Background
A member of the RNA family "mir-8364 microRNA precursor family" from Pristionchus pacificus, 61 nucleotides long. Pairs were carried over by alignment from the consensus structure, which was predicted with RNAalifold. Gene Ontology terms of the family: RISC complex and miRNA-mediated post-transcriptional gene silencing. The family has 13 seed sequences and 3,320 matches in Rfam 15.1.
[Rfam]
RNA sequence: UCUUCAUUUCGCACACUCUCUCGUCUCUCUGGCCGCUGAGAGAGUGUGGGACAUGAAGAGA
Numbered sequence: 001u002c003u004u005c006a007u008u009u010c011g012c013a014c015a016c017u018c019u020c021u022c023g024u025c026u027c028u029c030u031g032g033c034c035g036c037u038g039a040g041a042g043a044g045u046g047u048g049g050g051a052c053a054u055g056a057a058g059a060g061a
Stems, first nucleotide, its partner, number of pairs: 001059007010050001012048006019041004